[Rfam]
RtT RNA: a 130-nucleotide RNA sequence from Enterobacter sp. 638. The source organism's lineage runs through Bacteria, Pseudomonadati, Pseudomonadota, Enterobacteriaceae and Enterobacter. Gene Ontology term of the family: cellular response to amino acid starvation. The literature on the family includes a 1991 paper in Nucleic Acids Res by Bosl and Kersten, "A novel RNA product of the tyrT operon of Escherichia coli". By type it is a cis-regulatory element. The family's consensus secondary structure is taken from published work. Rfam's curators write: This family represents a bacterial cis-regulatory element known as RtT RNA. The exact function of RtT is unknown although it is thought that it may be involved in changing the cellular response in relation to amino acid starvation.

RNA sequence: AGUUUGCACUUAUCGGGAAGGGUGAGAACCUUCGUUAAGGUUCGACUCUUGCGAAGCAAGAGAACGUUGCCUCUGGCAACGGCCCGCAGGGUGAGGAGCGAAGCGACGAAUAAUCCUUCCCCCACCACCC
Numbered sequence: 001a002g003u004u005u006g007c008a009c010u011u012a013u014c015g016g017g018a019a020g021g022g023u024g025a026g027a028a029c030c031u032u033c034g035u036u037a038a039g040g041u042u043c044g045a046c047u048c049u050u051g052c053g054a055a056g057c058a059a060g061a062g063a064a065c066g067u068u069g070c071c072u073c074u075g076g077c078a079a080c081g082g083c084c085c086g087c088a089g090g091g092u093g094a095g096g097a098g099c100g101a102a103g104c105g106a107c108g109a110a111u112a113a114u115c116c117u118u119c120c121c122c123c124a125c126c127a128c129c130c
Base pairs, nucleotide, nucleotide: 015121016120017119018118019117020116021115023113033093034092036090041088043086044085065081066080067079068078069077070076